[Rfam]
RNA sequence: GUACCAUUGGGAUGAACUGGUGGUCCCGGACAUGAAACAACCAUCAUCUUCACUUUGUCAGCUAAUUAAUUUUUUUCCUUUAGCUGAUCAUUAAUGAUGGAACAAUU
Numbered sequence: 001g002u003a004c005c006a007u008u009g010g011g012a013u014g015a016a017c018u019g020g021u022g023g024u025c026c027c028g029g030a031c032a033u034g035a036a037a038c039a040a041c042c043a044u045c046a047u048c049u050u051c052a053c054u055u056u057g058u059c060a061g062c063u064a065a066u067u068a069a070u071u072u073u074u075u076u077c078c079u080u081u082a083g084c085u086g087a088u089c090a091u092u093a094a095u096g097a098u099g100g101a102a103c104a105a106u107u
Stems, first nucleotide, its partner, number of pairs: 041100005057088008

Small nucleolar RNA snoR99: a 107-nucleotide RNA from Ensete ventricosum. The source organism's lineage runs through Eukaryota, Viridiplantae, Euphyllophyta, Mesangiospermae and Ensete. It is annotated as an H/ACA-box small nucleolar RNA. Rfam links the family to the GO terms nucleolus and RNA processing.